This 64-nucleotide RNA from Cnephaeus nilssonii belongs to the Rfam family "mir-9242 microRNA precursor family".
Its family is annotated with miRNA-mediated post-transcriptional gene silencing and RISC complex in the Gene Ontology.
It scores 64 bits against the family's covariance model.
Taxonomically the source falls in Cnephaeus (Eukaryota, Opisthokonta, Metazoa, Euteleostomi).
Rfam 15.1 lists 940 matches to the family in 18 species.
The base pairs follow the family's consensus structure, which was predicted with RNAalifold.
RNA sequence: GGCCUCCCUCUGUGGGGUGAUUGAUGGCAGGGUCCCCAGAUCAAUUACCCCACAGAGGGAGGCC
Numbered sequence: 001g002g003c004c005u006c007c008c009u010c011u012g013u014g015g016g017g018u019g020a021u022u023g024a025u026g027g028c029a030g031g032g033u034c035c036c037c038a039g040a041u042c043a044a045u046u047a048c049c050c051c052a053c054a055g056a057g058g059g060a061g062g063c064c
Stems, first nucleotide, its partner, number of pairs: 001064025028039001030037002